Rfam assigns this 195-nucleotide RNA sequence from Erwinia billingiae to the family "Yersinia sRNA 276". A search with the family's covariance model found it, with a score of 180 bits. Pairs were carried over by alignment from the consensus structure, which was predicted with RNAfold.
RNA sequence: GACCGACAUCAGCGAUUCAUUCUGCGAACCCUGGCCCACGGCCAGAUAGGCGUUCAUGCCCAGCUCUUUCAUCUGCUGCUCGCCAAUCACGCGCGUAGUGAUGUUUUUGCUGUAGGCAUCCGCCAGCUGACGCGCCUGGGAGGCCAGGUAAGCCGCGUUACAGAUGUUCGGUGGCAUAUUGCCGAGGUCUUUUGC
Dot-bracket structure: ....(((....(.(.(((.(...).))).).)(((.....)))......((......))..(((..........)))((.((.((.(...(((.((..((.((....)).)).....)).)))..).)).)).))(((.((.((..........)).)).)))...((((((........)))))))))......